[Rfam]
The record is a 74-nucleotide RNA sequence from Mucilaginibacter robiniae, which matches "Fluoride riboswitch aptamer (crcB RNA motif)" in Rfam.
Rfam 15.1 lists 2,293 matches to the family in 1,982 species.
RNA sequence: UGCUUUAACGGAAAUGGUGUCCUUCCGGUUGAGUUCUCAACAAACCGCAUUUUGCUGAUGGCGCCUGCAGACUG
Number, nucleotide and partner (000 for none) at each position: 001u000002g000003c000004u000005u000006u000007a000008a000009c000010g026011g025012a024013a023014a000015u000016g065017g064018u063019g062020u061021c060022c000023u013024u012025c011026c010027g000028g000029u000030u000031g000032a000033g000034u000035u000036c000037u000038c000039a000040a000041c000042a000043a000044a000045c000046c000047g055048c054049a000050u000051u000052u000053u000054g048055c047056u000057g000058a000059u000060g021061g020062c019063g018064c017065c016066u000067g000068c000069a000070g000071a000072c000073u000074g000